[Rfam]
RNA sequence: AAGCGUCAUCCAUCACAACGGAUCGUCCGGCACGUACCUGCCGGUGAAGGAGAACACCA
Numbered sequence: 001a002a003g004c005g006u007c008a009u010c011c012a013u014c015a016c017a018a019c020g021g022a023u024c025g026u027c028c029g030g031c032a033c034g035u036a037c038c039u040g041c042c043g044g045u046g047a048a049g050g051a052g053a054a055c056a057c058c059a
Base pairs, nucleotide, nucleotide: 009051010050011049013047014046015045027044028043029042030041031040032039

Overview: A member of the RNA family "msiK RNA" from Mycetocola reblochoni, 59 nucleotides long. The family has 120 seed sequences and 1,374 matches in Rfam 15.1. A search with the family's covariance model found it, with a score of 64 bits.